[Rfam]
RNA: MIR7502 microRNA precursor family
RNA sequence: UAUUAAAAAUUGUAUUUAUUUUUACGGUUAAAAACUAACGUGAUUGAUAAAAUAACCCAACAAUUACACGUGACAUGUUAGUGUACGUCAUACUAGCGUAUAAGGAUUAGUUUUCAACCGCAAAAAUUAAUCAAUAUUUUAACA
Numbered sequence: 001u002a003u004u005a006a007a008a009a010u011u012g013u014a015u016u017u018a019u020u021u022u023u024a025c026g027g028u029u030a031a032a033a034a035c036u037a038a039c040g041u042g043a044u045u046g047a048u049a050a051a052a053u054a055a056c057c058c059a060a061c062a063a064u065u066a067c068a069c070g071u072g073a074c075a076u077g078u079u080a081g082u083g084u085a086c087g088u089c090a091u092a093c094u095a096g097c098g099u100a101u102a103a104g105g106a107u108u109a110g111u112u113u114u115c116a117a118c119c120g121c122a123a124a125a126a127u128u129a130a131u132c133a134a135u136a137u138u139u140u141a142a143c144a
Base pairs, nucleotide, nucleotide: 003142004141005140006139007138008137011134014131015130016129018127019126020125021124022123023122025120026119028117029116031114032113033112